[Rfam]
A member of the RNA family "Alphaproteobacterial ar14" from Loktanella sp. 3ANDIMAR09, 125 nucleotides long. The pairing is the family consensus, mapped onto this sequence. For this family Rfam cites "A survey of sRNA families in alpha-proteobacteria" (del Val et al., RNA Biol, 2012). The match comes from Rfam's covariance-model search (69 bits).

RNA sequence: CAUCGUCGGAACCCUCUACCUCCUCCCGGAGGGCCCGACGCCGGCGCAAGCCCGACCUCCUCCCCGAGGUUUGCGCUCACAAAUGGAAAGGCGAUGCGCACCUCCUCCCGCGCAUCGCCUUUUUC
Numbered sequence: 001c002a003u004c005g006u007c008g009g010a011a012c013c014c015u016c017u018a019c020c021u022c023c024u025c026c027c028g029g030a031g032g033g034c035c036c037g038a039c040g041c042c043g044g045c046g047c048a049a050g051c052c053c054g055a056c057c058u059c060c061u062c063c064c065c066g067a068g069g070u071u072u073g074c075g076c077u078c079a080c081a082a083a084u085g086g087a088a089a090g091g092c093g094a095u096g097c098g099c100a101c102c103u104c105c106u107c108c109c110g111c112g113c114a115u116c117g118c119c120u121u122u123u124u125c
Base pairs, nucleotide, nucleotide: 007037008036009035012033013032014031015030016029043077044076045075046074047073048072049071050070051069052068089120090119091118092117093116094115095114096113097112098111099110
Dot-bracket structure: ......(((..(((((............))))).))).....((((((((((...............))))))))))...........(((((((((((..........))))))))))).....